Alphaproteobacteria transfer-messenger RNA: a 370-nucleotide RNA from Orientia tsutsugamushi.
Taxonomically the source falls in Orientia tsutsugamushi (Bacteria, Pseudomonadota, Alphaproteobacteria, Rickettsieae).
Rfam's curators write: Bacterial tmRNA, also known as 10Sa RNA or SsrA, is named for its dual tRNA and mRNA-like properties. Its role is to liberate the mRNA from a stalled ribosome. To accomplish this part of the tmRNA is used as a reading frame that ends in a translation stop signal. The broken mRNA is replaced in the ribosome by the tmRNA and translation of the tmRNA leads to addition of a proteolysis tag to the incomplete protein enabling recognition by a protease.
Rfam classes the family as a non-coding RNA gene.
The sequence is in the family's curated seed alignment.
Rfam links the family to the GO term RNA catabolic process.
RNA sequence: GUUAUUGUAAAUAAAAAAUCAUAAUGUUAUAAUUAAUAAGCUAAUAAGCUAUGGCAAUAAGUUUUAUUAAGAAUAGAGGUAGUGGACCCGGGGGCAGUACUCGGCACCUCCACCAAGCUAUGAAGUAGUUGUGUUUUACGGGGGUGACAAAGUUUCGACACACCUAAUAAAAUAAUAAAUUUUGCCCGAUAUGAUUCCGUCGUUUUAAGCAGUAUUUAUAAAAAUUGUUUAAAUGGGUCAAAAAAAGAAAUGCAAAUGAUAACAUAAAGCAUUCUACAGACGGUAAUUUCCAAUUGAGUGCAUUAGCAGCUUAAGGAAAUUGGCGUACUGAGCGGUAGUAGGGCUUACCGGGCAACAGAAAAGCCCUAAU
Numbered sequence: 001g002u003u004a005u006u007g008u009a010a011a012u013a014a015a016a017a018a019u020c021a022u023a024a025u026g027u028u029a030u031a032a033u034u035a036a037u038a039a040g041c042u043a044a045u046a047a048g049c050u051a052u053g054g055c056a057a058u059a060a061g062u063u064u065u066a067u068u069a070a071g072a073a074u075a076g077a078g079g080u081a082g083u084g085g086a087c088c089c090g091g092g093g094g095c096a097g098u099a100c101u102c103g104g105c106a107c108c109u110c111c112a113c114c115a116a117g118c119u120a121u122g123a124a125g126u127a128g129u130u131g132u133g134u135u136u137u138a139c140g141g142g143g144g145u146g147a148c149a150a151a152g153u154u155u156c157g158a159c160a161c162a163c164c165u166a167a168u169a170a171a172a173u174a175a176u177a178a179a180u181u182u183u184g185c186c187c188g189a190u191a192u193g194a195u196u197c198c199g200u201c202g203u204u205u206u207a208a209g210c211a212g213u214a215u216u217u218a219u220a221a222a223a224a225u226u227g228u229u230u231a232a233a234u235g236g237g238u239c240a241a242a243a244a245a246a247g248a249a250a251u252g253c254a255a256a257u258g259a260u261a262a263c264a265u266a267a268a269g270c271a272u273u274c275u276a277c278a279g280a281c282g283g284u285a286a287u288u289u290c291c292a293a294u295u296g297a298g299u300g301c302a303u304u305a306g307c308a309g310c311u312u313a314a315g316g317a318a319a320u321u322g323g324c325g326u327a328c329u330g331a332g333c334g335g336u337a338g339u340a341g342g343g344c345u346u347a348c349c350g351g352g353c354a355a356c357a358g359a360a361a362a363g364c365c366c367u368a369a370u
Base pairs, nucleotide, nucleotide: 040049041048042047053186054185055184056183057182063179064178065177066176067175068174069173078164079163080162082161083160084159088104089103090102091101092100105146106145107144108143109142110141111140187202188201189200190199192240193239194238196237197236198235333350334349335348336347340367341366342365343364344363345362